[Rfam]
RNA: TPP riboswitch aptamer (THI element)
Organism: Geothermobacter ehrlichii
RNA sequence: CAGUUGCCCUGGGGGAGUCUUUGACUGAGAAUUCCGACCGACGGAAUGACCCUUUGAACCUGAUCCGGAUCAUACCGGCGUAGGGAAGCGGCACCGACAACAG
Numbered sequence: 001c002a003g004u005u006g007c008c009c010u011g012g013g014g015g016a017g018u019c020u021u022u023g024a025c026u027g028a029g030a031a032u033u034c035c036g037a038c039c040g041a042c043g044g045a046a047u048g049a050c051c052c053u054u055u056g057a058a059c060c061u062g063a064u065c066c067g068g069a070u071c072a073u074a075c076c077g078g079c080g081u082a083g084g085g086a087a088g089c090g091g092c093a094c095c096g097a098c099a100a101c102a103g
Stems, first nucleotide, its partner, number of pairs: 007090001009088002011053004016047001017025003032046005059084004065078004